[Rfam]
RNA sequence: GUCGGGCAAGAUGUCGGCCUGCAACCUUCAGGCCGCCUGAAUCAUCCCGGUAUCCGCUCUCCGUUGACCACGGAUGUACUGGCACUGUUGAGAGCAUGAUACCAGCAAGGUCAGGCGGAUCGCCUGGCCUUUUUUGUU
Numbered sequence: 001g002u003c004g005g006g007c008a009a010g011a012u013g014u015c016g017g018c019c020u021g022c023a024a025c026c027u028u029c030a031g032g033c034c035g036c037c038u039g040a041a042u043c044a045u046c047c048c049g050g051u052a053u054c055c056g057c058u059c060u061c062c063g064u065u066g067a068c069c070a071c072g073g074a075u076g077u078a079c080u081g082g083c084a085c086u087g088u089u090g091a092g093a094g095c096a097u098g099a100u101a102c103c104a105g106c107a108a109g110g111u112c113a114g115g116c117g118g119a120u121c122g123c124c125u126g127g128c129c130u131u132u133u134u135u136g137u138u
Stems, first nucleotide, its partner, number of pairs: 003049004008038001015035005052100003056095004062087001065084002068082003101137002104134002107131011

The record is a 138-nucleotide RNA sequence from Shinella fusca, which matches "Alphaproteobacterial sRNA ar35" in Rfam. The source organism's lineage runs through Bacteria, Pseudomonadati, Pseudomonadota, Hyphomicrobiales and Shinella. The literature on the family includes a 2012 paper in RNA Biol by del Val et al., "A survey of sRNA families in alpha-proteobacteria". The family's RNA type in Rfam is small RNA.